[Rfam]
RNA: MIR398 microRNA precursor family
RNA sequence: GGAAGCCCUGCAGGGGCGACCUGAGAACACACAUGAAAGACGCAGUACAACUACAAGGUUUCACCUUAUUAAACUAGUACCGACCACAUGUGAUCUCAUGUCGCUCCUGUUGGGCUCCU
Numbered sequence: 001g002g003a004a005g006c007c008c009u010g011c012a013g014g015g016g017c018g019a020c021c022u023g024a025g026a027a028c029a030c031a032c033a034u035g036a037a038a039g040a041c042g043c044a045g046u047a048c049a050a051c052u053a054c055a056a057g058g059u060u061u062c063a064c065c066u067u068a069u070u071a072a073a074c075u076a077g078u079a080c081c082g083a084c085c086a087c088a089u090g091u092g093a094u095c096u097c098a099u100g101u102c103g104c105u106c107c108u109g110u111u112g113g114g115c116u117c118c119u
Stems, first nucleotide, its partner, number of pairs: 007113002011109004016104004023097004028092004
Dot-bracket structure: ......((..((((.((((...((((.((((.........................................................)))).))))...)))).))))..))......